[Rfam]
RNA sequence: AUACUCGCAUGGGAGAUACCAUGAUCAUGAAGGUGGUUUUCCCAGGGCGAGGCUUAUCCAUUGUAUUCAGGAUGUGCUGACCCCUGUGAUUUCUCAUAAUGUGAGAAACCCAACUGCAUAAUUUAUGGUAGUGGGGGACAGCAUUUACACUCUCCCCUG
Numbered sequence: 001a002u003a004c005u006c007g008c009a010u011g012g013g014a015g016a017u018a019c020c021a022u023g024a025u026c027a028u029g030a031a032g033g034u035g036g037u038u039u040u041c042c043c044a045g046g047g048c049g050a051g052g053c054u055u056a057u058c059c060a061u062u063g064u065a066u067u068c069a070g071g072a073u074g075u076g077c078u079g080a081c082c083c084c085u086g087u088g089a090u091u092u093c094u095c096a097u098a099a100u101g102u103g104a105g106a107a108a109c110c111c112a113a114c115u116g117c118a119u120a121a122u123u124u125a126u127g128g129u130a131g132u133g134g135g136g137g138a139c140a141g142c143a144u145u146u147a148c149a150c151u152c153u154c155c156c157c158u159g
Stems, first nucleotide, its partner, number of pairs: 007117003011043006018037005044085004049081001051078003055074005087112002090108003094104002133158006140151002
RNA: U1 spliceosomal RNA
Organism: Molossus molossus